Rfam assigns this 91-nucleotide sequence from Hyphobacterium sp. CCMP332 to the family "Glycine riboswitch aptamer".
The match comes from Rfam's covariance-model search (69 bits).
RNA sequence: CCCGUCCCCGCGGGAGAGACCGGCGAAUAAGGCCGGCGCCGAAGGCGCAACCGCCCCGGAAACGCUCAGGCAAAUGGACCGCGGGAUGACG
Numbered sequence: 001c002c003c004g005u006c007c008c009c010g011c012g013g014g015a016g017a018g019a020c021c022g023g024c025g026a027a028u029a030a031g032g033c034c035g036g037c038g039c040c041g042a043a044g045g046c047g048c049a050a051c052c053g054c055c056c057c058g059g060a061a062a063c064g065c066u067c068a069g070g071c072a073a074a075u076g077g078a079c080c081g082c083g084g085g086a087u088g089a090c091g
Stems, first nucleotide, its partner, number of pairs: 007085007020036004038071003041067002045065003051059002
Background: The source organism's lineage runs through Bacteria, Pseudomonadota, Maricaulales, Maricaulaceae and Hyphobacterium.